[Rfam]
RNA sequence: AAGCUCUAUCAGUUGUUUUGCUGUUUGAACUGAGAAUUUUCUUCCGAAGGAGAACGAUGUCAGGAAGAAAAAGAGCAA
Numbered sequence: 001a002a003g004c005u006c007u008a009u010c011a012g013u014u015g016u017u018u019u020g021c022u023g024u025u026u027g028a029a030c031u032g033a034g035a036a037u038u039u040u041c042u043u044c045c046g047a048a049g050g051a052g053a054a055c056g057a058u059g060u061c062a063g064g065a066a067g068a069a070a071a072a073g074a075g076c077a078a
Stems, first nucleotide, its partner, number of pairs: 003076004009033004038070008
A member of the RNA family "CyVA-1 RNA", 78 nucleotides long.
By type it is a small RNA.
About the family: Cyanobacteria, Acidobacteria (1 example), Verrucomicrobia (1 example).
The sequence is in the family's curated seed alignment.